RNA sequence: AUACCUUUUGUUGUGUAUCCAUGAUUGAUGCAGCCUCAGAUGCUUCA
Dot-bracket structure: .........((((........))))......(((.......)))...
RNA: Plastid-ycf3 group II-D1 intron